[Rfam]
RNA sequence: GUUUCUCAGUGAAGGCUACAGAUUAAACCUCUGGCCUCUGGAGCCAGAUGCAUUGAAAC
Numbered sequence: 001g002u003u004u005c006u007c008a009g010u011g012a013a014g015g016c017u018a019c020a021g022a023u024u025a026a027a028c029c030u031c032u033g034g035c036c037u038c039u040g041g042a043g044c045c046a047g048a049u050g051c052a053u054u055g056a057a058a059c
Stems, first nucleotide, its partner, number of pairs: 001059005014045004019040004029034001